[Rfam]
RNA: Small nucleolar RNA Z279/snoR105/snoR108
RNA sequence: GGGAUGUGAUGAGUGGUCAAUACUCGCAUUAAAAUAUGCGAGAAGGGCAUUCAAGCUCAGCCUGUUACGACAAUUUGAGCGCUCUCAAUUUUACCAAUCUGAUCCC
Numbered sequence: 001g002g003g004a005u006g007u008g009a010u011g012a013g014u015g016g017u018c019a020a021u022a023c024u025c026g027c028a029u030u031a032a033a034a035u036a037u038g039c040g041a042g043a044a045g046g047g048c049a050u051u052c053a054a055g056c057u058c059a060g061c062c063u064g065u066u067a068c069g070a071c072a073a074u075u076u077g078a079g080c081g082c083u084c085u086c087a088a089u090u091u092u093a094c095c096a097a098u099c100u101g102a103u104c105c106c
Stems, first nucleotide, its partner, number of pairs: 001106004014096004023042005044085005050079002062077001064074002